Nucleotides: 102
Base pairs, nucleotide, nucleotide: 020086021085022084023083024082025081031047032046033045034044035043058078059077060076061075062074063073064072
Number, partner (000 for none) and nucleotide at each position: 001000u002000g003000a004000u005000c006000a007000c008000a009000u010000u011000u012000a013000a014000a015000u016000a017000u018000g019000a020086c021085u022084c023083g024082u025081a026000u027000a028000a029000a030000g031047c032046c033045g034044g035043g036000a037000a038000u039000a040000c041000g042000g043035c044034c045033c046032g047031g048000a049000a050000g051000u052000c053000u054000c055000u056000a057000c058078c059077c060076g061075a062074a063073a064072a065000c066000c067000g068000u069000a070000a071000a072064u073063u074062u075061u076060c077059g078058g079000a080000c081025u082024a083023c084022g085021a086020g087000g088000g089000a090000a091000u092000g093000a094000a095000a096000g097000c098000g099000g100000u101000a102000a
Source information
Rfam assigns this 102-nucleotide RNA from Paenibacillus sp. 7541 to the family "Purine riboswitch aptamer". Riboswitches are metabolite binding domains within certain messenger RNAs that serve as precision sensors for their corresponding targets. Allosteric rearrangement of mRNA structure is mediated by ligand binding, and this results in modulation of gene expression. A class of riboswitches that selectively recognises guanine and becomes saturated at concentrations as low as 5 nM. In Bacillus subtilis, this mRNA motif is located on at least five separate transcriptional units that together encode 17 genes that are mostly involved in purine transport and purine nucleotide biosynthesis. It has also been shown that some members of this family are specific for adenine instead. NCBI's taxonomy places the organism under Bacteria, Bacillota, Caryophanales, Paenibacillaceae, Paenibacillus.